[Rfam]
RNA sequence: GUCGUCCUUCGGGGUCAGGUGCAAUUCCUAACCGGCGGUGAUGAGGAAGUGAUCCUCUAAGCCCGUGACCCGUUUCGCAAAGCGUAACGGUGGAUUUGGUGAAAAACCAGAGCCGACAGUAACAGUCUGGAUGGGAGAAGGAACCA
Numbered sequence: 001g002u003c004g005u006c007c008u009u010c011g012g013g014g015u016c017a018g019g020u021g022c023a024a025u026u027c028c029u030a031a032c033c034g035g036c037g038g039u040g041a042u043g044a045g046g047a048a049g050u051g052a053u054c055c056u057c058u059a060a061g062c063c064c065g066u067g068a069c070c071c072g073u074u075u076c077g078c079a080a081a082g083c084g085u086a087a088c089g090g091u092g093g094a095u096u097u098g099g100u101g102a103a104a105a106a107c108c109a110g111a112g113c114c115g116a117c118a119g120u121a122a123c124a125g126u127c128u129g130g131a132u133g134g135g136a137g138a139a140g141g142a143a144c145c146a
Stems, first nucleotide, its partner, number of pairs: 005142006017029003031126002033115002035066004061113002070090002095111005117129003
Dot-bracket structure: ....((((((......(((.......))).[[((((((......................[[))))...((.................))....(((((.......)))))]])).(((.....]]))).......))))))....
Shown here is a 146-nucleotide RNA sequence from Texcoconibacillus texcoconensis, a member of the family "FMN riboswitch aptamer (RFN element)".
Gene Ontology term of the family: FMN binding.
NCBI's taxonomy places the organism under Bacteria, Bacillati, Bacillota, Caryophanales, Texcoconibacillus.